The family of this 75-nucleotide RNA sequence from Pteropus vampyrus is "Small nucleolar RNA SNORD113/SNORD114 family". Lineage of the source: Eukaryota > Euteleostomi > Mammalia > Pteropodidae > Pteropus. The match comes from Rfam's covariance-model search (39 bits). It is annotated as a C/D-box small nucleolar RNA. The family has 59 seed sequences and 5,721 matches in Rfam 15.1. Its Rfam clan is "SNORD74 clan".
[Rfam]
RNA sequence: UGAAUCAAUGAUAUGUAACUGCCAGCAGAUGAGUCACAAUGAUCAAUAAUACGGGUCUGGACCUCUGAGGUCCAA
Numbered sequence: 001u002g003a004a005u006c007a008a009u010g011a012u013a014u015g016u017a018a019c020u021g022c023c024a025g026c027a028g029a030u031g032a033g034u035c036a037c038a039a040u041g042a043u044c045a046a047u048a049a050u051a052c053g054g055g056u057c058u059g060g061a062c063c064u065c066u067g068a069g070g071u072c073c074a075a
Base pairs, nucleotide, nucleotide: 002073004071005070006069